[Rfam]
RNA: Small nucleolar RNA SNORA9
Organism: Piaya cayana
RNA sequence: CAGCAAGGUGUCCAGCGUGGCGGGGCCUGGUGUGACCCUCACCACUCCUGCAGCUCUUGCCACAGCAGCCCCGGGCCUGUUUGAGGCCCCUCGCGGUGCUUCCCGGCGAGGGGUUAUAGAAAGCUCGUACACCC
Numbered sequence: 001c002a003g004c005a006a007g008g009u010g011u012c013c014a015g016c017g018u019g020g021c022g023g024g025g026c027c028u029g030g031u032g033u034g035a036c037c038c039u040c041a042c043c044a045c046u047c048c049u050g051c052a053g054c055u056c057u058u059g060c061c062a063c064a065g066c067a068g069c070c071c072c073g074g075g076c077c078u079g080u081u082u083g084a085g086g087c088c089c090c091u092c093g094c095g096g097u098g099c100u101u102c103c104c105g106g107c108g109a110g111g112g113g114u115u116a117u118a119g120a121a122a123g124c125u126c127g128u129a130c131a132c133c134c
Stems, first nucleotide, its partner, number of pairs: 003060006018044003023038003027034001072127005087113006094106001096104001